[Rfam]
RNA sequence: UGCAGUGUUACAGUACCUGCACCCAGCAGCCUUCUCCUGGAUGUUCAAAAAGCAGUGCUACAGCAGUGCAGCAUUUGGCAUCCUUGGUUUUCCUCUUGCUGUGUCUGUUAAACCUGAUUAUUUGCUGAAAUGGCA
Numbered sequence: 001u002g003c004a005g006u007g008u009u010a011c012a013g014u015a016c017c018u019g020c021a022c023c024c025a026g027c028a029g030c031c032u033u034c035u036c037c038u039g040g041a042u043g044u045u046c047a048a049a050a051a052g053c054a055g056u057g058c059u060a061c062a063g064c065a066g067u068g069c070a071g072c073a074u075u076u077g078g079c080a081u082c083c084u085u086g087g088u089u090u091u092c093c094u095c096u097u098g099c100u101g102u103g104u105c106u107g108u109u110a111a112a113c114c115u116g117a118u119u120a121u122u123u124g125c126u127g128a129a130a131u132g133g134c135a
Base pairs, nucleotide, nucleotide: 002058003057004056006054007053018049019044020043021042023040024039025038026037028035029034061124062123065122066121067120069116070115071114077105078104079103080102081101

Background: The record is a 135-nucleotide sequence from Ptilorrhoa leucosticta, which matches "Small nucleolar RNA SNORA8" in Rfam. Rfam describes the family as follows. ACA8 is a member of the H/ACA class of snoRNA that guide the sites of modification of uridines to pseudouridines. The organism belongs to Ptilorrhoa, within Eukaryota. The family has 5 seed sequences and 1,490 matches in Rfam 15.1. Pairs were carried over by alignment from the consensus structure, which was predicted with RNAfold. The family is grouped with related families in Rfam's "SNORA8 clan".